[Rfam]
RNA: Small nucleolar RNA Z122
RNA sequence: UUUGGGAAAUGAUGCGAAUUCGAUAUCAUAGGCGCAAUUGUAUUAUUGUUGCUGUUCUGCUGCUGAAUAUUUGCACGUCAGUCUGAUCCCAAA
Numbered sequence: 001u002u003u004g005g006g007a008a009a010u011g012a013u014g015c016g017a018a019u020u021c022g023a024u025a026u027c028a029u030a031g032g033c034g035c036a037a038u039u040g041u042a043u044u045a046u047u048g049u050u051g052c053u054g055u056u057c058u059g060c061u062g063c064u065g066a067a068u069a070u071u072u073g074c075a076c077g078u079c080a081g082u083c084u085g086a087u088c089c090c091a092a093a
Stems, first nucleotide, its partner, number of pairs: 001093007